The record is a 78-nucleotide RNA sequence from Neodiprion lecontei, which matches "mir-190 microRNA precursor family" in Rfam. A search with the family's covariance model found it, with a score of 75 bits. Taxonomically the source falls in Neodiprion (Eukaryota, Metazoa, Protostomia, Tenthredinoidea). The family is grouped with related families in Rfam's "mir-50 clan".
RNA sequence: GCUACUGUUAGAUAUGUUUGAUAUUCUUGGUUGUUGUUCCAAUAAUCGACCAGGAAUCAAACAUAUUAUUACUGUGGU
Numbered sequence: 001g002c003u004a005c006u007g008u009u010a011g012a013u014a015u016g017u018u019u020g021a022u023a024u025u026c027u028u029g030g031u032u033g034u035u036g037u038u039c040c041a042a043u044a045a046u047c048g049a050c051c052a053g054g055a056a057u058c059a060a061a062c063a064u065a066u067u068a069u070u071a072c073u074g075u076g077g078u
Stems, first nucleotide, its partner, number of pairs: 005074001007072002011067012024054002029051005
Dot-bracket structure: ....(.((..((((((((((((.((...(((((.............))))).)).))))))))))))...)).)....